This 141-nucleotide RNA from Jaculus jaculus belongs to the Rfam family "Small nucleolar RNA SNORA29". For this family Rfam cites "RNomics: an experimental approach that identifies 201 candidates for novel, small, non-messenger RNAs in mouse" (Huttenhofer et al., EMBO J, 2001). It scores 116 bits against the family's covariance model. It is annotated as an H/ACA-box small nucleolar RNA. The base pairs follow the family's consensus structure, which was predicted with PFOLD. Rfam 15.1 lists 960 matches to the family in 621 species.
[Rfam]
RNA sequence: AGUCCCAUUUCACUACCACAUUUUUAACCAAAUAGUAGUUUUCAGUGGCAAUGCUUGUGGGAUGGACUAAAGAUGCCAUAAUCUGAAGAGGGAAGGCUUUUCAGUGCCUUCUUUCCAUAUGAGAUGGCUGAAAACAAAACA
Numbered sequence: 001a002g003u004c005c006c007a008u009u010u011c012a013c014u015a016c017c018a019c020a021u022u023u024u025u026a027a028c029c030a031a032a033u034a035g036u037a038g039u040u041u042u043c044a045g046u047g048g049c050a051a052u053g054c055u056u057g058u059g060g061g062a063u064g065g066a067c068u069a070a071a072g073a074u075g076c077c078a079u080a081a082u083c084u085g086a087a088g089a090g091g092g093a094a095g096g097c098u099u100u101u102c103a104g105u106g107c108c109u110u111c112u113u114u115c116c117a118u119a120u121g122a123g124a125u126g127g128c129u130g131a132a133a134a135c136a137a138a139a140c141a
Stems, first nucleotide, its partner, number of pairs: 004061004016048004075128004095114002